[Rfam]
The family of this 81-nucleotide sequence from Paenibacillus naphthalenovorans is "ZMP/ZTP riboswitch aptamer (pfl RNA motif)".

RNA sequence: AGUGCCCGGUGUAACUGGCGACGAGUGGAAUAAACCACAGUGGAGCAUCGGGACAUACGGCCGGUCGCCUGGGCGAAAGAG
Numbered sequence: 001a002g003u004g005c006c007c008g009g010u011g012u013a014a015c016u017g018g019c020g021a022c023g024a025g026u027g028g029a030a031u032a033a034a035c036c037a038c039a040g041u042g043g044a045g046c047a048u049c050g051g052g053a054c055a056u057a058c059g060g061c062c063g064g065u066c067g068c069c070u071g072g073g074c075g076a077a078a079g080a081g
Stems, first nucleotide, its partner, number of pairs: 005052008015042001017069005025038004060074003
NCBI's taxonomy places the organism under Bacteria, Bacillota, Caryophanales, Paenibacillaceae, Paenibacillus.